[Rfam]
RNA sequence: CGGCUAUGAUGAGUAAAGAAAUAUGGCUGACUUGGUAUCGGUACCUCUGGGUGUCUAUGACCAGGGUCUGAUUGCAUUUAAUCUUCUCUCUGAGCUG
Numbered sequence: 001c002g003g004c005u006a007u008g009a010u011g012a013g014u015a016a017a018g019a020a021a022u023a024u025g026g027c028u029g030a031c032u033u034g035g036u037a038u039c040g041g042u043a044c045c046u047c048u049g050g051g052u053g054u055c056u057a058u059g060a061c062c063a064g065g066g067u068c069u070g071a072u073u074g075c076a077u078u079u080a081a082u083c084u085u086c087u088c089u090c091u092g093a094g095c096u097g
Stems, first nucleotide, its partner, number of pairs: 003095002040055004

Shown here is a 97-nucleotide RNA from Ameiurus melas, a member of the family "Z30 small nucleolar RNA". For this family Rfam cites "Purified box C/D snoRNPs are able to reproduce site-specific 2'-O-methylation of target RNA in vitro" (Galardi et al., Mol Cell Biol, 2002). The family's consensus secondary structure was predicted with PFOLD. The match comes from Rfam's covariance-model search (64 bits). Taxonomically the source falls in Ameiurus (Eukaryota, Deuterostomia, Neopterygii, Characiphysae). It is annotated as a C/D-box small nucleolar RNA. Gene Ontology terms of the family: nucleolus and RNA processing.